[Rfam]
RNA sequence: UUUGGCAAAUGACGAGCUCGAAAUCUUAUCUUACACACUGAUUUUUGUCUGUGAUAGACUAAUUAAACUCCGCUUAUUAUCUGAUGCCAUU
Numbered sequence: 001u002u003u004g005g006c007a008a009a010u011g012a013c014g015a016g017c018u019c020g021a022a023a024u025c026u027u028a029u030c031u032u033a034c035a036c037a038c039u040g041a042u043u044u045u046u047g048u049c050u051g052u053g054a055u056a057g058a059c060u061a062a063u064u065a066a067a068c069u070c071c072g073c074u075u076a077u078u079a080u081c082u083g084a085u086g087c088c089a090u091u
Stems, first nucleotide, its partner, number of pairs: 003089005
This 91-nucleotide RNA sequence from Striga hermonthica belongs to the Rfam family "Small nucleolar RNA R16". By type it is a C/D-box small nucleolar RNA. Rfam links the family to the GO terms nucleolus and RNA processing. Pairs were carried over by alignment from the consensus structure, which was predicted with PFOLD.